A member of the RNA family "Small Cajal body specific RNA 3" from Urocolius indicus, 135 nucleotides long. A reference for the family is Darzacq et al. (2002), "Cajal body-specific small nuclear RNAs: a novel class of 2'-O-methylation and pseudouridylation guide RNAs", EMBO J. Clan: SCARNA3 clan.

RNA sequence: GCUGGGGCCAGUUGGGACCAGUUGUGGGCAAAAGAAAUAUGUUUUGUCCACUGUUGCAGUCUUCCUAGAGCAAAGUGGAGAUAUCUAUAUGCUUUAGGAGAGACAGCUAAACCAGAUCAUUCCCCUCCACACACG
Numbered sequence: 001g002c003u004g005g006g007g008c009c010a011g012u013u014g015g016g017a018c019c020a021g022u023u024g025u026g027g028g029c030a031a032a033a034g035a036a037a038u039a040u041g042u043u044u045u046g047u048c049c050a051c052u053g054u055u056g057c058a059g060u061c062u063u064c065c066u067a068g069a070g071c072a073a074a075g076u077g078g079a080g081a082u083a084u085c086u087a088u089a090u091g092c093u094u095u096a097g098g099a100g101a102g103a104c105a106g107c108u109a110a111a112c113c114a115g116a117u118c119a120u121u122c123c124c125c126u127c128c129a130c131a132c133a134c135g
Stems, first nucleotide, its partner, number of pairs: 004065003009059001011057002024051006034043002077128004087117002091113001093111005
Rfam 15.1 lists 642 matches to the family in 535 species. Rfam's curators write: scaRNAs are a specific class of small nuclear RNAs which localise to the Cajal bodies and guide the modification of RNA polymerase II transcribed spliceosomal RNAs U1, U2, U4, U5 and U12. The family's consensus secondary structure was predicted with RNAalifold. It is annotated as a small Cajal body RNA. It scores 80 bits against the family's covariance model.